[Rfam]
RNA sequence: CAAAUCGGACAAUUGCGCGAUGAAAGACUCGUGAGGAAGGUCCAUGCCCGUCCGAUCUGCGAUGAUUGGAGUUUUUGUACCGAGCCUAAUAAGCGAAGGUGGGUGGCAUUCGUGUUAUCCGACGGCUGGAAAAAGCGCUAAACUUCGGCAUGCGUGAUUAUCCUAUAAAAGUGCUAUAGCGACGAAGAACCGGGAAACUGGGGAAGUGAGACGACGUAAACCCUGCAAGCGGGCAACCCAAACUUUUGGUAGGGGCGGUCAAUUUAGCUAACUGAAGUAAAAAUUGACACUGAUAUCGCAAAAUAUCGGUAGAUAGAUGAUUGUCGAAGAAUACGGCUGCCAACCGUAUUUGGAACAUAACAUGGCCUAUAGAU
Numbered sequence: 001c002a003a004a005u006c007g008g009a010c011a012a013u014u015g016c017g018c019g020a021u022g023a024a025a026g027a028c029u030c031g032u033g034a035g036g037a038a039g040g041u042c043c044a045u046g047c048c049c050g051u052c053c054g055a056u057c058u059g060c061g062a063u064g065a066u067u068g069g070a071g072u073u074u075u076u077g078u079a080c081c082g083a084g085c086c087u088a089a090u091a092a093g094c095g096a097a098g099g100u101g102g103g104u105g106g107c108a109u110u111c112g113u114g115u116u117a118u119c120c121g122a123c124g125g126c127u128g129g130a131a132a133a134a135g136c137g138c139u140a141a142a143c144u145u146c147g148g149c150a151u152g153c154g155u156g157a158u159u160a161u162c163c164u165a166u167a168a169a170a171g172u173g174c175u176a177u178a179g180c181g182a183c184g185a186a187g188a189a190c191c192g193g194g195a196a197a198c199u200g201g202g203g204a205a206g207u208g209a210g211a212c213g214a215c216g217u218a219a220a221c222c223c224u225g226c227a228a229g230c231g232g233g234c235a236a237c238c239c240a241a242a243c244u245u246u247u248g249g250u251a252g253g254g255g256c257g258g259u260c261a262a263u264u265u266a267g268c269u270a271a272c273u274g275a276a277g278u279a280a281a282a283a284u285u286g287a288c289a290c291u292g293a294u295a296u297c298g299c300a301a302a303a304u305a306u307c308g309g310u311a312g313a314u315a316g317a318u319g320a321u322u323g324u325c326g327a328a329g330a331a332u333a334c335g336g337c338u339g340c341c342a343a344c345c346g347u348a349u350u351u352g353g354a355a356c357a358u359a360a361c362a363u364g365g366c367c368u369a370u371a372g373a374u
Base pairs, nucleotide, nucleotide: 004374005373006372007370008325009324010323011322012321013320014319016033017032018031019030020029038368039367040366042365043364044363045362046361047233048232049231050230051229052069053068054067055066056065057064075228076227077226078225079224080098084094085093099123100121101120102119103118104117105116106115107114108113124223125222128163129162130161135155136154137153138152143148171221172220173217174216190201191200192199193198237254238253239252258288259287260286261285262284263283264282289310290309291308292307293306294305295304296303329351330350331349332348333347334346335345336344

A member of the RNA family "Bacterial RNase P class B" from Oenococcus kitaharae, 374 nucleotides long. For this family Rfam cites "The Ribonuclease P Database" (Brown, Nucleic Acids Res, 1999). Taxonomically the source falls in Oenococcus kitaharae (Bacteria, Bacillota, Lactobacillales, Oenococcus). Rfam links the family to the GO terms ribonuclease P activity, dimeric ribonuclease P complex and tRNA processing. The match comes from Rfam's covariance-model search (235 bits).